[Rfam]
RNA: MIR9563 microRNA precursor family
Organism: Brassica napus
RNA sequence: GGAAUAUAAGAACCUGUCUCUUAACUUUUAACUAAAAAAACUAAUAAGCGUCUCUUAAAACUCUUAUUUAAGAACCGAUUCUUAGUUUUUUUAGUUAAAAAUUAAGAGUCAGGUUCUUAUAUUCC
Numbered sequence: 001g002g003a004a005u006a007u008a009a010g011a012a013c014c015u016g017u018c019u020c021u022u023a024a025c026u027u028u029u030a031a032c033u034a035a036a037a038a039a040a041c042u043a044a045u046a047a048g049c050g051u052c053u054c055u056u057a058a059a060a061c062u063c064u065u066a067u068u069u070a071a072g073a074a075c076c077g078a079u080u081c082u083u084a085g086u087u088u089u090u091u092u093a094g095u096u097a098a099a100a101a102u103u104a105a106g107a108g109u110c111a112g113g114u115u116c117u118u119a120u121a122u123u124c125c
Stems, first nucleotide, its partner, number of pairs: 001125016018108007026100014041085004046080002